[Rfam]
RNA sequence: AACAUAAAUUAAAUACGUCGUCGUAUAAUAAUGGGAAUAAGGCCCGUAAGUUUCUACCAAGUCACCGUAAAUGACUUGACUACGAUAAUGAAAAUAGUUGUA
Numbered sequence: 001a002a003c004a005u006a007a008a009u010u011a012a013a014u015a016c017g018u019c020g021u022c023g024u025a026u027a028a029u030a031a032u033g034g035g036a037a038u039a040a041g042g043c044c045c046g047u048a049a050g051u052u053u054c055u056a057c058c059a060a061g062u063c064a065c066c067g068u069a070a071a072u073g074a075c076u077u078g079a080c081u082a083c084g085a086u087a088a089u090g091a092a093a094a095u096a097g098u099u100g101u102a
Stems, first nucleotide, its partner, number of pairs: 018088001020086006029049001031047005058078007
Rfam assigns this 102-nucleotide RNA sequence from Lysinibacillus odysseyi to the family "Purine riboswitch aptamer". Taxonomically the source falls in Lysinibacillus odysseyi (Bacteria, Bacillati, Bacillota, Bacilli).